Rfam assigns this 99-nucleotide RNA sequence from Desulforamulus profundi to the family "Guanidine-I riboswitch aptamer". This family represents a conserved RNA structure found upstream of the ykkC and yxkD genes in Bacillus subtilis and related genes in other bacteria. NCBI's taxonomy places the organism under Bacteria, Bacillati, Clostridia, Eubacteriales, Desulforamulus. Its family is annotated with regulation of gene expression in the Gene Ontology. It scores 65 bits against the family's covariance model.
RNA sequence: GGAAAGUGUACCUAGGGUUCCACAACCCAUGAGGGUUGGUUUGGUCCAAGCGGUACAGGCGUUUUGCGCUACACCGAUAGGGAUAAAAGCCCAGGCGGU
Numbered sequence: 001g002g003a004a005a006g007u008g009u010a011c012c013u014a015g016g017g018u019u020c021c022a023c024a025a026c027c028c029a030u031g032a033g034g035g036u037u038g039g040u041u042u043g044g045u046c047c048a049a050g051c052g053g054u055a056c057a058g059g060c061g062u063u064u065u066g067c068g069c070u071a072c073a074c075c076g077a078u079a080g081g082g083a084u085a086a087a088a089g090c091c092c093a094g095g096c097g098g099u
Stems, first nucleotide, its partner, number of pairs: 007057006015047002020044002022041001023038006058070005072094001074097001080092003